[Rfam]
RNA sequence: AUCUCCUUUUGGCCUUUUGGUUAAGAUCAUGUGUAGUAUCUGUUCUUAUCAGUUUAAUAUCUGAUAUGUCCUCUGUCUGAGGACGCUAUAUUAAAUGGGUUUUUGGAGCAGGGAGAUGGGAUAGGAGCUUGCUCUGUCCACUCUAGGCAUUGAUCUGGUAUUGCAGUACCUUCAGGAAUGGUGCACCCCCU
Numbered sequence: 001a002u003c004u005c006c007u008u009u010u011g012g013c014c015u016u017u018u019g020g021u022u023a024a025g026a027u028c029a030u031g032u033g034u035a036g037u038a039u040c041u042g043u044u045c046u047u048a049u050c051a052g053u054u055u056a057a058u059a060u061c062u063g064a065u066a067u068g069u070c071c072u073c074u075g076u077c078u079g080a081g082g083a084c085g086c087u088a089u090a091u092u093a094a095a096u097g098g099g100u101u102u103u104u105g106g107a108g109c110a111g112g113g114a115g116a117u118g119g120g121a122u123a124g125g126a127g128c129u130u131g132c133u134c135u136g137u138c139c140a141c142u143c144u145a146g147g148c149a150u151u152g153a154u155c156u157g158g159u160a161u162u163g164c165a166g167u168a169c170c171u172u173c174a175g176g177a178a179u180g181g182u183g184c185a186c187c188c189c190c191u
Stems, first nucleotide, its partner, number of pairs: 007026003011022004047066006068084006112144004118138002124135004147184006154176005
RNA: U2 spliceosomal RNA